Shown here is a 234-nucleotide RNA sequence from Halalkalibacter wakoensis, a member of the family "Group II catalytic intron D1-D4-6".
[Rfam]
RNA sequence: UGAUUCCCGUCGAGCAAGAGCUAGCCACUCACUUGUAGCGAGUCUUGGAGGGUGUUGGGUAACCGGCACCUUUAAGCGUAGACAGUUAGAUUGUGGGCCGAAAGCCAAUUAAGGUUGAAGGAUAUAGCUCCGAAAUACCAAAACGAGAAGGCUGAUGUAUUUGACAGUAUAGAAAGCAACAUUCUUUUCCUCGAAAUGGCAAGAAGGAAAGAGCUUCUCCGGAGUCGAUGAUCC
Numbered sequence: 001u002g003a004u005u006c007c008c009g010u011c012g013a014g015c016a017a018g019a020g021c022u023a024g025c026c027a028c029u030c031a032c033u034u035g036u037a038g039c040g041a042g043u044c045u046u047g048g049a050g051g052g053u054g055u056u057g058g059g060u061a062a063c064c065g066g067c068a069c070c071u072u073u074a075a076g077c078g079u080a081g082a083c084a085g086u087u088a089g090a091u092u093g094u095g096g097g098c099c100g101a102a103a104g105c106c107a108a109u110u111a112a113g114g115u116u117g118a119a120g121g122a123u124a125u126a127g128c129u130c131c132g133a134a135a136u137a138c139c140a141a142a143a144c145g146a147g148a149a150g151g152c153u154g155a156u157g158u159a160u161u162u163g164a165c166a167g168u169a170u171a172g173a174a175a176g177c178a179a180c181a182u183u184c185u186u187u188u189c190c191u192c193g194a195a196a197u198g199g200c201a202a203g204a205a206g207g208a209a210a211g212a213g214c215u216u217c218u219c220c221g222g223a224g225u226c227g228a229u230g231a232u233c234c
Base pairs, nucleotide, nucleotide: 011035012034013033014032018030019029020028022202024200025199038086039085042083043082044081045080046078047077048073049072050071051070052069053068054067055066056065057064058063127225128224129223130222131221132220145219146218147217148216149215150214151177152176153175156171157170158169159168182213183212184211185210186209187208188207189206191204192203
A search with the family's covariance model found it, with a score of 155 bits.